[Rfam]
RNA: Small nucleolar RNA R64/Z200 family
RNA sequence: AUUUUAUAAAUUAUAUAUGGCAAACUUCACAUGUCAGACUUCAGAUAUACUACAGUAUCAAUGAGACUAUAUCUAUAUUUCUGAAUCAAAU
Numbered sequence: 001a002u003u004u005u006a007u008a009a010a011u012u013a014u015a016u017a018u019g020g021c022a023a024a025c026u027u028c029a030c031a032u033g034u035c036a037g038a039c040u041u042c043a044g045a046u047a048u049a050c051u052a053c054a055g056u057a058u059c060a061a062u063g064a065g066a067c068u069a070u071a072u073c074u075a076u077a078u079u080u081c082u083g084a085a086u087c088a089a090a091u
Base pairs, nucleotide, nucleotide: 001091002090003089004088006086007085047058048057049056
Dot-bracket structure: ((((.((.......................................(((......)))..........................)).))))